[Rfam]
RNA sequence: UGCCCUUAGAAACCAAGUGUGGGUGUGGCCUGAAAAAUAAAUGUGGCGACCCAUCCUUAGUUUCUGAGGUCU
Dot-bracket structure: .(.((((.(((((..((...((((...(((..............))).))))...))..))))).)))).).

Rfam assigns this 72-nucleotide sequence from Sphaeramia orbicularis to the family "mir-551 microRNA precursor family".